[Rfam]
RNA sequence: UCGGUUCCGGUUCACCGCGUAAUGCGCGAUGUCGAUGAUUGCGCAUGCGGACCCGGCGUCC
Number, nucleotide and partner (000 for none) at each position: 001u000002c000003g061004g060005u000006u000007c056008c055009g054010g053011u000012u000013c000014a000015c050016c049017g048018c047019g046020u045021a000022a000023u000024g000025c000026g000027c000028g000029a000030u000031g000032u000033c000034g000035a000036u000037g000038a000039u000040u000041g000042c000043g000044c000045a020046u019047g018048c017049g016050g015051a000052c000053c010054c009055g008056g007057c000058g000059u000060c004061c003
RNA: L31-Actinobacteria ribosomal protein leader